[Rfam]
RNA: SAH (S-adenosyl-L-homocysteine) riboswitch aptamer
Organism: Rhizobacter terrae
RNA sequence: UCGCCCAAGGAGCGUUGCGACAACCGUCACGGUUGCCAGGCUUGGGCAGAUCGGCCCCCUGCUCCAGCGACGGGCCGGUGUUCCAACGGCGCUCACCCGAC
Numbered sequence: 001u002c003g004c005c006c007a008a009g010g011a012g013c014g015u016u017g018c019g020a021c022a023a024c025c026g027u028c029a030c031g032g033u034u035g036c037c038a039g040g041c042u043u044g045g046g047c048a049g050a051u052c053g054g055c056c057c058c059c060u061g062c063u064c065c066a067g068c069g070a071c072g073g074g075c076c077g078g079u080g081u082u083c084c085a086a087c088g089g090c091g092c093u094c095a096c097c098c099g100a101c
Stems, first nucleotide, its partner, number of pairs: 003047006021035006
Dot-bracket structure: ..((((((............((((((...))))))......))))))......................................................